[Rfam]
RNA sequence: GUCGGUUACGGAGACAUCUAUCCAAAAACGUUAUUAGGGAAGAUUGUGGGAGGUCUCUGCUGUAUCGCAGGGGUUCUGGUGAUCGCCCUUCCCAUCCCAAUCAUUGUGAACAAU
Numbered sequence: 001g002u003c004g005g006u007u008a009c010g011g012a013g014a015c016a017u018c019u020a021u022c023c024a025a026a027a028a029c030g031u032u033a034u035u036a037g038g039g040a041a042g043a044u045u046g047u048g049g050g051a052g053g054u055c056u057c058u059g060c061u062g063u064a065u066c067g068c069a070g071g072g073g074u075u076c077u078g079g080u081g082a083u084c085g086c087c088c089u090u091c092c093c094a095u096c097c098c099a100a101u102c103a104u105u106g107u108g109a110a111c112a113a114u
Base pairs, nucleotide, nucleotide: 001114002113004111007108008107009106010105011104013102014101020095021094037077038076039075040074049063051061
The family of this 114-nucleotide RNA from Ovis aries is "Potassium channel RNA editing signal".
From the family's description: This family represents a group of sequences related to the human potassium channel Kv1.1 hairpin element which directs the efficient modification of an adenosine to inosine by an adenosine deaminase acting on RNA (ADAR). The ADAR modification causes an isoleucine/valine recoding event which lies in the ion-conducting pore of the potassium channel.
The family's RNA type in Rfam is cis-regulatory element.